Nucleotides: 031
Base pairs, nucleotide, nucleotide: 002030003029004028005027006026007025009024010023011022012021013020014018
Number, partner (000 for none) and nucleotide at each position: 001000u002030u003029a004028u005027u006026u007025u008000c009024c010023u011022u012021g013020a014018c015000a016000g017000u018014g019000c020013u021012c022011g023010a024009g025007a026006a027005a028004a029003u030002g031000u
This 31-nucleotide RNA from Pan troglodytes belongs to the Rfam family "Iron response element II".
Rfam's curators write: IRE, TFRC, SLC40A1, SDHB, SLC11A2, CDC42BPA, ACO2, ALAS2_H.SAPIENS, CDC14A, EPAS1, ALAS2, qoxD, Hao1, NDUFS1, transferrin, Aconitate.
Rfam links the family to the GO term response to iron ion.
Rfam classes the family as a cis-regulatory element.
Pairs were carried over by alignment from the consensus structure, which is taken from published work.